A member of the RNA family "Fluoride riboswitch aptamer (crcB RNA motif)" from Erysipelothrix larvae, 73 nucleotides long.
Rfam 15.1 lists 2,293 matches to the family in 1,982 species.
RNA sequence: GUACACAAAGGGAAUGAAGUUCUCCCUGUUCUGAUUAAGACAAACCGCAUAUGCUGAUGACUUCUAUACUUUU
Numbered sequence: 001g002u003a004c005a006c007a008a009a010g011g012g013a014a015u016g017a018a019g020u021u022c023u024c025c026c027u028g029u030u031c032u033g034a035u036u037a038a039g040a041c042a043a044a045c046c047g048c049a050u051a052u053g054c055u056g057a058u059g060a061c062u063u064c065u066a067u068a069c070u071u072u073u
Base pairs, nucleotide, nucleotide: 010026011025012024013023016064017063018062019061020060021059047054048053

For this family Rfam cites "Widespread genetic switches and toxicity resistance proteins for fluoride" (Baker et al., Science, 2012).
It scores 45 bits against the family's covariance model.